This 119-nucleotide RNA from Canis lupus belongs to the Rfam family "U5 spliceosomal RNA". The base pairs follow the family's consensus structure, which is taken from published work. The family's RNA type in Rfam is spliceosomal small nuclear RNA. A search with the family's covariance model found it, with a score of 93 bits. A reference for the family is Hinz et al. (1996), "Domain analysis of human U5 RNA. Cap trimethylation, protein binding, and spliceosome assembly", J Biol Chem.
[Rfam]
RNA sequence: AGACUCUGGUUUCUCUUCAGAUUGAAUAAAUCUUUCGCCUUUUACUAAGGAUUUCCAUGGAGAGAAACAACUCUGAGUCUUAGACUAAUUUUUUUUGAGGCCUUACUUUGUGUGAGGCU
Numbered sequence: 001a002g003a004c005u006c007u008g009g010u011u012u013c014u015c016u017u018c019a020g021a022u023u024g025a026a027u028a029a030a031u032c033u034u035u036c037g038c039c040u041u042u043u044a045c046u047a048a049g050g051a052u053u054u055c056c057a058u059g060g061a062g063a064g065a066a067a068c069a070a071c072u073c074u075g076a077g078u079c080u081u082a083g084a085c086u087a088a089u090u091u092u093u094u095u096u097g098a099g100g101c102c103u104u105a106c107u108u109u110g111u112g113u114g115a116g117g118c119u
Stems, first nucleotide, its partner, number of pairs: 003078004009068011028054008098119001100118006